[Rfam]
RNA: Bacterial RNase P class A
RNA sequence: GGAGCGGUUCGGGUGAACGCCGGUCGCUGCAGGACGGGGCGGCGGGAGGAAAGUCCGAGCUCCACAGGGCAGGGUGCUGGCUAACGGCCAGUCGGGGCGACCCGCAGGAAAGUGCCACAGAAAAGAGACCGCCGGCCCGCGAGGGACCGGUAAGGGUGAAACGGUGCGGUAAGAGCGCACCGCGCCCGGCGUGAGUCGGGCGGCACGGCAAACCCCACCUGGAGCAAGAGCCAAUAGGAGCGCGUCCUGUCGCAAGACAGGACAAGGAUGGCCCGUCCGACGCGCUCGGGUCUGCUCGCUGACGAGGCACUGGGUAACCAGGGCCCUAGACGAAUGUUCACCGCCCACUCCGAGAGGGGUGGGGACAGAACUCGGCUUACAGGGCCGCUCCGGCU
Numbered sequence: 001g002g003a004g005c006g007g008u009u010c011g012g013g014u015g016a017a018c019g020c021c022g023g024u025c026g027c028u029g030c031a032g033g034a035c036g037g038g039g040c041g042g043c044g045g046g047a048g049g050a051a052a053g054u055c056c057g058a059g060c061u062c063c064a065c066a067g068g069g070c071a072g073g074g075u076g077c078u079g080g081c082u083a084a085c086g087g088c089c090a091g092u093c094g095g096g097g098c099g100a101c102c103c104g105c106a107g108g109a110a111a112g113u114g115c116c117a118c119a120g121a122a123a124a125g126a127g128a129c130c131g132c133c134g135g136c137c138c139g140c141g142a143g144g145g146a147c148c149g150g151u152a153a154g155g156g157u158g159a160a161a162c163g164g165u166g167c168g169g170u171a172a173g174a175g176c177g178c179a180c181c182g183c184g185c186c187c188g189g190c191g192u193g194a195g196u197c198g199g200g201c202g203g204c205a206c207g208g209c210a211a212a213c214c215c216c217a218c219c220u221g222g223a224g225c226a227a228g229a230g231c232c233a234a235u236a237g238g239a240g241c242g243c244g245u246c247c248u249g250u251c252g253c254a255a256g257a258c259a260g261g262a263c264a265a266g267g268a269u270g271g272c273c274c275g276u277c278c279g280a281c282g283c284g285c286u287c288g289g290g291u292c293u294g295c296u297c298g299c300u301g302a303c304g305a306g307g308c309a310c311u312g313g314g315u316a317a318c319c320a321g322g323g324c325c326c327u328a329g330a331c332g333a334a335u336g337u338u339c340a341c342c343g344c345c346c347a348c349u350c351c352g353a354g355a356g357g358g359g360u361g362g363g364g365a366c367a368g369a370a371c372u373c374g375g376c377u378u379a380c381a382g383g384g385c386c387g388c389u390c391c392g393g394c395u
Stems, first nucleotide, its partner, number of pairs: 001391010011380001012342007020046002023043006051378003055375005060224004067274004072220005077091005092106001093104004107215002112213002114209003129155002131151005137145002163181006182204001183202008228297004238287006266278004306325003310321004